[Rfam]
RNA sequence: UCCAGGGUAGUCGGCUGUCCAGAGCAGUGCCGUGCCUGUGAUAGUGUUAUACUGCUGGGAGAUAAAGAUCAGUCAUUUCUUUUGGCUGCUGUUGUCACCAUUCUGGAGACAGCUGGUGCCAGAAAGAAGUGGCGUUGUGCUUCCCUGAGAGUGCGCUAAAGAUUUGCUUUCCCUCUUUAGUGCUAGUCUGGAAGCAUACAUA
Number, nucleotide and partner (000 for none) at each position: 001u059002c058003c057004a056005g055006g053007g052008u051009a000010g050011u049012c000013g000014g045015c044016u043017g042018u041019c040020c038021a037022g036023a000024g000025c000026a000027g000028u000029g000030c000031c000032g000033u000034g000035c000036c022037u021038g020039u000040g019041a018042u017043a016044g015045u014046g000047u000048u000049a011050u010051a008052c007053u006054g000055c005056u004057g003058g002059g001060a000061g000062a000063u000064a000065a000066a000067g135068a000069u000070c132071a000072g130073u129074c000075a000076u000077u000078u000079c000080u000081u125082u124083u123084g000085g000086c118087u000088g000089c115090u000091g113092u000093u111094g110095u109096c108097a000098c106099c105100a000101u000102u000103c000104u000105g099106g098107a000108g096109a095110c094111a093112g000113c091114u000115g089116g000117u000118g086119c000120c000121a000122g000123a083124a082125a081126g000127a000128a000129g073130u072131g000132g070133c000134g000135u067136u000137g197138u196139g195140c194141u193142u192143c191144c190145c000146u000147g000148a000149g000150a000151g000152u000153g183154c182155g181156c000157u179158a178159a177160a176161g175162a174163u000164u000165u000166g000167c000168u000169u000170u000171c000172c000173c000174u162175c161176u160177u159178u158179a157180g000181u155182g154183c153184u000185a000186g000187u000188c000189u000190g144191g143192a142193a141194g140195c139196a138197u137198a000199c000200a000201u000202a000
RNA: Small nucleolar RNA SNORA74
Organism: Antrostomus carolinensis